The record is a 171-nucleotide RNA sequence from bacterium 1XD8-76, which matches "Lysine riboswitch aptamer" in Rfam. The family's consensus secondary structure is taken from published work.
RNA sequence: UUUCUAGAUAGAGGUUGCGCCUGUUAUCAGUAACCUGUCCGAUGUGGCAGCCACAGAGGAGGGCGGGGGAAAGGAACCGGCGCCGAAGGAGUGUUUUGCUGCGGAACAUAUCCUGGGCAUGUAUUUAAGAGAUACAUGACUGUCAUCGGCAGAUGGGGCGCUAUCAUAAGG
Numbered sequence: 001u002u003u004c005u006a007g008a009u010a011g012a013g014g015u016u017g018c019g020c021c022u023g024u025u026a027u028c029a030g031u032a033a034c035c036u037g038u039c040c041g042a043u044g045u046g047g048c049a050g051c052c053a054c055a056g057a058g059g060a061g062g063g064c065g066g067g068g069g070a071a072a073g074g075a076a077c078c079g080g081c082g083c084c085g086a087a088g089g090a091g092u093g094u095u096u097u098g099c100u101g102c103g104g105a106a107c108a109u110a111u112c113c114u115g116g117g118c119a120u121g122u123a124u125u126u127a128a129g130a131g132a133u134a135c136a137u138g139a140c141u142g143u144c145a146u147c148g149g150c151a152g153a154u155g156g157g158g159c160g161c162u163a164u165c166a167u168a169a170g171g
Stems, first nucleotide, its partner, number of pairs: 007165005017083005023077003034067007087114004091109007115141002118138008143156005
About the family: Riboswitches are metabolite binding domains within certain messenger RNAs that serve as precision sensors for their corresponding targets. Allosteric rearrangement of mRNA structure is mediated by ligand binding, and this results in modulation of gene expression. This family includes riboswitches that sense lysine in a number of genes involved in lysine metabolism, including lysC.